[Rfam]
RNA: Small nucleolar RNA Z43
Organism: Papaver nudicaule
RNA sequence: UAACAAUGAUGAUAUGUGUGAUGGUCUUGUACGUCGUAAUGGCUGUCUAAUCGCGGCCUUGCCGACCACUCUAUAUAUCACCACCCAUAUUCUGAGUUU
Number, nucleotide and partner (000 for none) at each position: 001u000002a098003a097004c096005a000006a000007u000008g000009a000010u000011g000012a000013u000014a000015u000016g000017u000018g000019u000020g000021a000022u000023g000024g000025u000026c000027u000028u000029g000030u000031a000032c000033g000034u000035c000036g000037u000038a000039a000040u000041g000042g000043c000044u000045g060046u000047c055048u000049a000050a000051u000052c000053g000054c000055g047056g000057c000058c000059u000060u045061g000062c000063c000064g000065a000066c000067c000068a000069c000070u000071c000072u000073a000074u000075a000076u000077a000078u000079c000080a000081c000082c000083a000084c000085c000086c000087a000088u000089a000090u000091u000092c000093u000094g000095a000096g004097u003098u002099u000